This 87-nucleotide RNA from Piliocolobus tephrosceles belongs to the Rfam family "mir-515 microRNA precursor family".
RNA sequence: UCUCGGGCUGUAACCCUCUAGGAGGAAGCGCUUUCUGUGGUCUGAAAGAAAAGAAAGUGCUUCCUUUUAGAGGGUUACCGUUUGAGA
Numbered sequence: 001u002c003u004c005g006g007g008c009u010g011u012a013a014c015c016c017u018c019u020a021g022g023a024g025g026a027a028g029c030g031c032u033u034u035c036u037g038u039g040g041u042c043u044g045a046a047a048g049a050a051a052a053g054a055a056a057g058u059g060c061u062u063c064c065u066u067u068u069a070g071a072g073g074g075u076u077a078c079c080g081u082u083u084g085a086g087a
Stems, first nucleotide, its partner, number of pairs: 001087005007081002010078005016072003020068016038052001
Rfam 15.1 lists 1,056 matches to the family in 27 species. Taxonomically the source falls in Piliocolobus (Eukaryota, Amniota, Cercopithecoidea, Cercopithecidae). Pairs were carried over by alignment from the consensus structure, which was predicted with RNAalifold. The literature on the family includes a 2005 paper in Nat Genet by Bentwich et al., "Identification of hundreds of conserved and nonconserved human microRNAs".